Shown here is a 130-nucleotide RNA sequence from Cronobacter condimenti, a member of the family "opuB ncRNA motif". opuB ncRNA motif was reported as a strong cis regulatory motif candidate, with potential to be a cis regulatory riboswitch type, it have been identified in mostly from species of Enterobacteriaceae. Its family is annotated with regulation of gene expression in the Gene Ontology. The base pairs follow the family's consensus structure, which is taken from published work. NCBI's taxonomy places the organism under Bacteria, Pseudomonadati, Gammaproteobacteria, Enterobacteriaceae, Cronobacter condimenti.

RNA sequence: UAAUCGUCACGCCAGCUGGAAUCCUGCCCGACAGGUUGCUAUAGCUCAACACACCCUGCCGAAACACGGCAUAACAACAGGCGACACUGUCGCCAUAAAACGUGCACCAGGGAGACAAUGCCUCAUGCAG
Numbered sequence: 001u002a003a004u005c006g007u008c009a010c011g012c013c014a015g016c017u018g019g020a021a022u023c024c025u026g027c028c029c030g031a032c033a034g035g036u037u038g039c040u041a042u043a044g045c046u047c048a049a050c051a052c053a054c055c056c057u058g059c060c061g062a063a064a065c066a067c068g069g070c071a072u073a074a075c076a077a078c079a080g081g082c083g084a085c086a087c088u089g090u091c092g093c094c095a096u097a098a099a100a101c102g103u104g105c106a107c108c109a110g111g112g113a114g115a116c117a118a119u120g121c122c123u124c125a126u127g128c129a130g
Base pairs, nucleotide, nucleotide: 012112013111018028019027034105037102038101057071058070059069060068061067080094081093082092083091084090085089